[Rfam]
terC RNA: a 55-nucleotide sequence from Rubellimicrobium roseum.

RNA sequence: GAUGGGGUCCGGGCCCCUCUGGCAAGCCAACCACUUGCGAUGUCGGACCUUCAUC
Number, nucleotide and partner (000 for none) at each position: 001g000002a000003u000004g000005g000006g049007g048008u047009c046010c045011g044012g043013g000014c000015c000016c000017c000018u000019c000020u000021g000022g038023c037024a036025a035026g034027c000028c000029a000030a000031c000032c000033a000034c026035u025036u024037g023038c022039g000040a000041u000042g000043u012044c011045g010046g009047a008048c007049c006050u000051u000052c000053a000054u000055c000

It is annotated as a cis-regulatory element. NCBI's taxonomy places the organism under Bacteria, Alphaproteobacteria, Rhodobacterales, Roseobacteraceae, Rubellimicrobium.